A member of the RNA family "Bacterial large subunit ribosomal RNA" from Lachnospiraceae bacterium 3_1_57FAA_CT1, 452 nucleotides of a longer RNA. Gene Ontology terms of the family: ribosome and structural constituent of ribosome.

[Rfam]
RNA sequence: CUCCUCGAAAUAGCUUUAGGGCUAGCCUCGUAUUAAUUCCAUGGAGGUAGAGCACUGAAUUUCCUAGGGGGCGUCAAAGUCUACCGAAGAAUAUCAAACUCCGAAUGCCAUAGGAAUGCUGUACGGGAGUCAGACUGCACGAGAUAAGUUGGGCAGUCAAAAGGGAAAGAGCCCAGACCUACAGCUAAGGUCCCAAAGUACGUGUUAAGUGGAAAAGGAUGUGGGAUUUCAGAGACAACUAGGAUGUUGGCUUAGAAGCAGCCAUACAUUCAAAGAGUGCGUAAUAGCUCACUAGUCGAGAGGUCCUGCGCCGAAAAUGUCCGGGGCUGAAACACGGCACCGAAGCUUAGGAAUGUGUUAGGAACUUUAGUUCCUUUCACGUUGGUAGAGGAGCAUUCUUACCGGGAGGAAGCAGUAUUGUAAGGUAUUGUGGACUGGUAAGAAGAGAGAAU
Numbered sequence: 001c002u003c004c005u006c007g008a009a010a011u012a013g014c015u016u017u018a019g020g021g022c023u024a025g026c027c028u029c030g031u032a033u034u035a036a037u038u039c040c041a042u043g044g045a046g047g048u049a050g051a052g053c054a055c056u057g058a059a060u061u062u063c064c065u066a067g068g069g070g071g072c073g074u075c076a077a078a079g080u081c082u083a084c085c086g087a088a089g090a091a092u093a094u095c096a097a098a099c100u101c102c103g104a105a106u107g108c109c110a111u112a113g114g115a116a117u118g119c120u121g122u123a124c125g126g127g128a129g130u131c132a133g134a135c136u137g138c139a140c141g142a143g144a145u146a147a148g149u150u151g152g153g154c155a156g157u158c159a160a161a162a163g164g165g166a167a168a169g170a171g172c173c174c175a176g177a178c179c180u181a182c183a184g185c186u187a188a189g190g191u192c193c194c195a196a197a198g199u200a201c202g203u204g205u206u207a208a209g210u211g212g213a214a215a216a217g218g219a220u221g222u223g224g225g226a227u228u229u230c231a232g233a234g235a236c237a238a239c240u241a242g243g244a245u246g247u248u249g250g251c252u253u254a255g256a257a258g259c260a261g262c263c264a265u266a267c268a269u270u271c272a273a274a275g276a277g278u279g280c281g282u283a284a285u286a287g288c289u290c291a292c293u294a295g296u297c298g299a300g301a302g303g304u305c306c307u308g309c310g311c312c313g314a315a316a317a318u319g320u321c322c323g324g325g326g327c328u329g330a331a332a333c334a335c336g337g338c339a340c341c342g343a344a345g346c347u348u349a350g351g352a353a354u355g356u357g358u359u360a361g362g363a364a365c366u367u368u369a370g371u372u373c374c375u376u377u378c379a380c381g382u383u384g385g386u387a388g389a390g391g392a393g394c395a396u397u398c399u400u401a402c403c404g405g406g407a408g409g410a411a412g413c414a415g416u417a418u419u420g421u422a423a424g425g426u427a428u429u430g431u432g433g434a435c436u437g438g439u440a441a442g443a444a445g446a447g448a449g450a451a452u
Base pairs, nucleotide, nucleotide: 001393002392003391004390005389006388011024012023013022014021015020026129027127028126029125030124031123032122033121035120036117037116038115039114040113041111042110043109044108050102051100052099056096057095058094061091062090063089067085068084069082070081071080072079133158134157135156136155137154138153140151141150142149163174164173165172178351179350180349181348183347184346185345189341190340191339198338201336202335203334204333205332217312218311221309222308223307224306225305226304227303228302229301230300238296239295240294241293242292244269245268246267249263250262251261270274275290279288280287352383353382354381355380356379357378394447396444397443398442399441400440401439402438403437404436405435412431413430414429415428416427417426418425419424

A search with the family's covariance model found it, with a score of 2812 bits.
The family is grouped with related families in Rfam's "LSU clan".
The base pairs follow the family's consensus structure, which is taken from published work.